[Rfam]
Shown here is a 77-nucleotide RNA from Roseivivax halotolerans, a member of the family "Glycine riboswitch aptamer".
RNA sequence: CACUCUGGAGAGAGGCUCGCACAAUAAAGCAGCGGGCCCGCCGAAGGGAUAGCGAUCUCAGGCGCAAGGACAGAGGG
Numbered sequence: 001c002a003c004u005c006u007g008g009a010g011a012g013a014g015g016c017u018c019g020c021a022c023a024a025u026a027a028a029g030c031a032g033c034g035g036g037c038c039c040g041c042c043g044a045a046g047g048g049a050u051a052g053c054g055a056u057c058u059c060a061g062g063c064g065c066a067a068g069g070a071c072a073g074a075g076g077g
Stems, first nucleotide, its partner, number of pairs: 001077001003075005014038007040063003043059002047057002